[Rfam]
The record is an 83-nucleotide RNA from Ananas comosus, which matches "Small nucleolar RNA Z199" in Rfam. Rfam 15.1 lists 953 matches to the family in 222 species. For this family Rfam cites "The high diversity of snoRNAs in plants: identification and comparative study of 120 snoRNA genes from Oryza sativa" (Chen et al., Nucleic Acids Res, 2003). snoZ199 is a C/D box small nucleolar RNA, which acts as a methylation guide RNA for sites on 18S and 25S rRNA. Rice snoZ199 is reported to be homologous to Arabidopsis snoR13. The base pairs follow the family's consensus structure, which was predicted with PFOLD. Gene Ontology terms of the family: RNA processing and nucleolus. Taxonomically the source falls in Ananas (Eukaryota, Viridiplantae, Euphyllophyta, Magnoliopsida).
RNA sequence: GGAUCAAAUGAUGAGGAAAACUGCAACAAUAUGACGGAUCUAUAUCCUUUCCGUGAUUCGUAGUAUUUAAGUCUCUGAUGAUC
Numbered sequence: 001g002g003a004u005c006a007a008a009u010g011a012u013g014a015g016g017a018a019a020a021c022u023g024c025a026a027c028a029a030u031a032u033g034a035c036g037g038a039u040c041u042a043u044a045u046c047c048u049u050u051c052c053g054u055g056a057u058u059c060g061u062a063g064u065a066u067u068u069a070a071g072u073c074u075c076u077g078a079u080g081a082u083c
Stems, first nucleotide, its partner, number of pairs: 001083002004081003036052003